[Rfam]
The family of this 261-nucleotide sequence from Streptomyces mexicanus is "Streptomyces sRNA 4677". The base pairs follow the family's consensus structure. A search with the family's covariance model found it, with a score of 112 bits.
RNA sequence: GGGGUGCGGGCGGUAAAAAGACCAAAGAACCCGGGGAAAUAACCAACCAACCACACGAAACCCGGCAUCCGUCACUCGGGCGGGUGAAUGUGGCCGGUCUGGCUGGCGUGGCGGCGGUUCGGGCGUGCAGGCUCGCCCCGAGGCGGUCGAGGCAUAUGCACCCGCCCCAGCGCAUUCACCACCCCACACAUGCAUCGGCCCCCGCCGGGACGGCAAUCCCAGUGCGAGGGCCUGACCAUCGAGGAAGAGAAGAGGUCUUCC
Numbered sequence: 001g002g003g004g005u006g007c008g009g010g011c012g013g014u015a016a017a018a019a020g021a022c023c024a025a026a027g028a029a030c031c032c033g034g035g036g037a038a039a040u041a042a043c044c045a046a047c048c049a050a051c052c053a054c055a056c057g058a059a060a061c062c063c064g065g066c067a068u069c070c071g072u073c074a075c076u077c078g079g080g081c082g083g084g085u086g087a088a089u090g091u092g093g094c095c096g097g098u099c100u101g102g103c104u105g106g107c108g109u110g111g112c113g114g115c116g117g118u119u120c121g122g123g124c125g126u127g128c129a130g131g132c133u134c135g136c137c138c139c140g141a142g143g144c145g146g147u148c149g150a151g152g153c154a155u156a157u158g159c160a161c162c163c164g165c166c167c168c169a170g171c172g173c174a175u176u177c178a179c180c181a182c183c184c185c186a187c188a189c190a191u192g193c194a195u196c197g198g199c200c201c202c203c204g205c206c207g208g209g210a211c212g213g214c215a216a217u218c219c220c221a222g223u224g225c226g227a228g229g230g231c232c233u234g235a236c237c238a239u240c241g242a243g244g245a246a247g248a249g250a251a252g253a254g255g256u257c258u259u260c261c
Stems, first nucleotide, its partner, number of pairs: 003240004012062003072087006102171005197232005203226003207220004243261005